[Rfam]
RNA sequence: UUGAUGUUAACACUGAUUAGUGUCACUCAAAGUAACAAGAUCGCGGCAAUCGUUUGUGUUUGGUAACCCCAUCUCACCAUCGCUUGUCCACUCUUGCACAGAAUGGAAUCAUGUUGUAAUUACAGUGCAAUAAGGUAAUUAUAACCCAUUUAAUUGAUAGCUAUGCUUUAUUAAAGUGUGUAGCUGUAGAGAGAAUGUUAAAGACUGUCACCUCUGCGUGAUUGCAAGUGAACAGUGCCCCCCGGGAAGAGCUCUACAGUGUGAAAUGUAAAUAAAAAUAGCUAUUAUUCAAUUAGAUUAGGCUAAUUAGAUGAUUUGC
Numbered sequence: 001u002u003g004a005u006g007u008u009a010a011c012a013c014u015g016a017u018u019a020g021u022g023u024c025a026c027u028c029a030a031a032g033u034a035a036c037a038a039g040a041u042c043g044c045g046g047c048a049a050u051c052g053u054u055u056g057u058g059u060u061u062g063g064u065a066a067c068c069c070c071a072u073c074u075c076a077c078c079a080u081c082g083c084u085u086g087u088c089c090a091c092u093c094u095u096g097c098a099c100a101g102a103a104u105g106g107a108a109u110c111a112u113g114u115u116g117u118a119a120u121u122a123c124a125g126u127g128c129a130a131u132a133a134g135g136u137a138a139u140u141a142u143a144a145c146c147c148a149u150u151u152a153a154u155u156g157a158u159a160g161c162u163a164u165g166c167u168u169u170a171u172u173a174a175a176g177u178g179u180g181u182a183g184c185u186g187u188a189g190a191g192a193g194a195a196u197g198u199u200a201a202a203g204a205c206u207g208u209c210a211c212c213u214c215u216g217c218g219u220g221a222u223u224g225c226a227a228g229u230g231a232a233c234a235g236u237g238c239c240c241c242c243c244g245g246g247a248a249g250a251g252c253u254c255u256a257c258a259g260u261g262u263g264a265a266a267u268g269u270a271a272a273u274a275a276a277a278a279u280a281g282c283u284a285u286u287a288u289u290c291a292a293u294u295a296g297a298u299u300a301g302g303c304u305a306a307u308u309a310g311a312u313g314a315u316u317u318g319c
Stems, first nucleotide, its partner, number of pairs: 036096005041090001045088005052081001056077003061071002106317007114144010148298010158284007168275003184259008204236005209230003238246003303310002
The record is a 319-nucleotide sequence from Betacoronavirus cameli, which matches "Betacoronavirus 3'UTR" in Rfam. Rfam classes the family as a cis-regulatory element. Pairs were carried over by alignment from the consensus structure. A reference for the family is Goebel et al. (2004), "The 3' cis-acting genomic replication element of the severe acute respiratory syndrome coronavirus can function in the murine coronavirus genome", J Virol. From the family's description: The 3' UTR of betacoronaviruses is approximately 300-500 nucleotides long.